[Rfam]
RNA sequence: UGAAUUUUAUAAGUCAUACCGUAGACAGUAGGUGCUUAACCGCUUAAUUUCCUACCGAGGUUUGAAACGCAUAGAUCCUAGUCUUCUAGGAACCGAUCGUUUUGCCUCCAUGUCUGCACAUGGAGGCUUUUUUAAUGGAGAU
Numbered sequence: 001u002g003a004a005u006u007u008u009a010u011a012a013g014u015c016a017u018a019c020c021g022u023a024g025a026c027a028g029u030a031g032g033u034g035c036u037u038a039a040c041c042g043c044u045u046a047a048u049u050u051c052c053u054a055c056c057g058a059g060g061u062u063u064g065a066a067a068c069g070c071a072u073a074g075a076u077c078c079u080a081g082u083c084u085u086c087u088a089g090g091a092a093c094c095g096a097u098c099g100u101u102u103u104g105c106c107u108c109c110a111u112g113u114c115u116g117c118a119c120a121u122g123g124a125g126g127c128u129u130u131u132u133u134a135a136u137g138g139a140g141a142u
Base pairs, nucleotide, nucleotide: 028055029054030053031052032051034043035042104127105126106125107124108123109122110121111120112119113118
Shown here is a 142-nucleotide RNA from Paenalkalicoccus suaedae, a member of the family "Ribosomal protein L10 leader". A search with the family's covariance model found it, with a score of 82 bits. Pairs were carried over by alignment from the consensus structure, which was predicted with CMfinder. Rfam links the family to the GO term regulation of gene expression. The organism belongs to Paenalkalicoccus, within Bacteria.